[Rfam]
RNA: permuted transfer-messenger RNA
Nucleotides: 183
Base pairs, nucleotide, nucleotide: 001116002115003114004113005112014106015105016104017103026095027094028093031091032090036052037051038050039049040048053077054076055075056074057073058072059071117132118131119130
Number, partner (000 for none) and nucleotide at each position: 001116a002115g003114a004113g005112a006000u007000a008000a009000a010000c011000g012000g013000c014106u015105u016104a017103c018000a019000u020000a021000a022000u023000a024000c025000c026095c027094a028093u029000u030000a031091c032090g033000g034000a035000c036052c037051c038050g039049g040048g041000g042000g043000c044000g045000g046000u047000a048040c049039c050038c051037g052036g053077c054076a055075c056074c057073u058072c059071c060000a061000c062000c063000a064000u065000a066000u067000u068000u069000u070000a071059g072058g073057g074056g075055g076054u077053g078000a079000u080000a081000u082000a083000g084000g085000a086000u087000c088000g089000a090032c091031g092000a093028a094027u095026g096000u097000u098000u099000a100000a101000a102000g103017g104016u105015a106014a107000g108000u109000u110000u111000u112005u113004c114003u115002c116001u117132c118131g119130g120000c121000a122000u123000u124000g125000u126000a127000c128000c129000a130119c131118c132117g133000u134000u135000a136000u137000c138000g139000g140000g141000c142000u143000a144000a145000c146000u147000u148000u149000u150000a151000a152000a153000u154000g155000c156000u157000a158000a159000c160000a161000a162000u163000a164000a165000a166000u167000u168000a169000g170000c171000g172000c173000u174000c175000g176000c177000u178000g179000c180000u181000u182000a183000a